Small nucleolar RNA SNORD121A: a 77-nucleotide RNA from Sparus aurata.
The source organism's lineage runs through Eukaryota, Neopterygii, Ctenosquamata, Sparidae and Sparus.
Rfam links the family to the GO terms nucleolus and RNA processing.
[Rfam]
RNA sequence: UGUUGGGAGAUAAUGAUGGAAUUAAGCACAUAUCUCAAUACUAAAUGUAGAGAAAACUUUGUCUGAAUCUCCCAUCC
Numbered sequence: 001u002g003u004u005g006g007g008a009g010a011u012a013a014u015g016a017u018g019g020a021a022u023u024a025a026g027c028a029c030a031u032a033u034c035u036c037a038a039u040a041c042u043a044a045a046u047g048u049a050g051a052g053a054a055a056a057c058u059u060u061g062u063c064u065g066a067a068u069c070u071c072c073c074a075u076c077c
Stems, first nucleotide, its partner, number of pairs: 002076001004074003008070004